RNA: mir-184 microRNA precursor family
RNA sequence: UUGAUCACGUUUCCUUACCACUUCCCCGGCCGGUUUGAUGUAUAACACUGGACGGAGAACUGAUAAGGGCUAGUGCUUCA
Numbered sequence: 001u002u003g004a005u006c007a008c009g010u011u012u013c014c015u016u017a018c019c020a021c022u023u024c025c026c027c028g029g030c031c032g033g034u035u036u037g038a039u040g041u042a043u044a045a046c047a048c049u050g051g052a053c054g055g056a057g058a059a060c061u062g063a064u065a066a067g068g069g070c071u072a073g074u075g076c077u078u079c080a
Base pairs, nucleotide, nucleotide: 012069013068014067015066016065017064019062020061022059023058024057026055027054030051031050